[Rfam]
RNA sequence: CAGUACAUUGGUAGCUGUCAAGCCAAGGGCGGUAGCGUG
Numbered sequence: 001c002a003g004u005a006c007a008u009u010g011g012u013a014g015c016u017g018u019c020a021a022g023c024c025a026a027g028g029g030c031g032g033u034a035g036c037g038u039g
Stems, first nucleotide, its partner, number of pairs: 008026005